[Rfam]
RNA sequence: GAGGGCGGGCCCCUCGGAUUCGCCGGUCAGGCGGUGAUUCCAAACCACCCUGAGCUGCUGGCGUAAAGAGCGCUGGUGGUGAGCGUCAGAGGAAAAGGCAAGGUUGACCUUGUCAGGU
Numbered sequence: 001g002a003g004g005g006c007g008g009g010c011c012c013c014u015c016g017g018a019u020u021c022g023c024c025g026g027u028c029a030g031g032c033g034g035u036g037a038u039u040c041c042a043a044a045c046c047a048c049c050c051u052g053a054g055c056u057g058c059u060g061g062c063g064u065a066a067a068g069a070g071c072g073c074u075g076g077u078g079g080u081g082a083g084c085g086u087c088a089g090a091g092g093a094a095a096a097g098g099c100a101a102g103g104u105u106g107a108c109c110u111u112g113u114c115a116g117g118u
Stems, first nucleotide, its partner, number of pairs: 001015005016041003020037002023034003046117001048092002050089004054080002057077003061073004097114006